Shown here is a 91-nucleotide RNA from Runella sp. SP2, a member of the family "TPP riboswitch aptamer (THI element)". The match comes from Rfam's covariance-model search (63 bits).
[Rfam]
RNA sequence: AUUUCAUGCACGGGGUGCUGUAAAAAGCUGAGAUGAUACCCGAGAACCUGAACUGGUUAGUACCAGCGUAGGAAUGCAGGAGACAAAAGAC
Numbered sequence: 001a002u003u004u005c006a007u008g009c010a011c012g013g014g015g016u017g018c019u020g021u022a023a024a025a026a027g028c029u030g031a032g033a034u035g036a037u038a039c040c041c042g043a044g045a046a047c048c049u050g051a052a053c054u055g056g057u058u059a060g061u062a063c064c065a066g067c068g069u070a071g072g073a074a075u076g077c078a079g080g081a082g083a084c085a086a087a088a089g090a091c
Base pairs, nucleotide, nucleotide: 007078008077009076010075011042012041013040014039016036017028018027019026047072048071049070050069053066054065055064056063